[Rfam]
RNA: Small Cajal body specific RNA 11
Organism: Alligator mississippiensis
RNA sequence: GCGUCCUGAUCCUGGCAAAGUUGCUCUCUUCACCAGAGCAGUGGUGGAGAGAUUCAGGGUAGACGCAGAUCAGCUUCUCUCAGUUUAGGAGGGCUGCCAAAGAAAUGUGCAUGCCCUUAAAGGCACGAGAGGACAUC
Dot-bracket structure: .((((....((.............((.((((((..........)))))).))....))...))))..........((((((.((((..((((((.((((......)).))..))))))..))))..)))))).....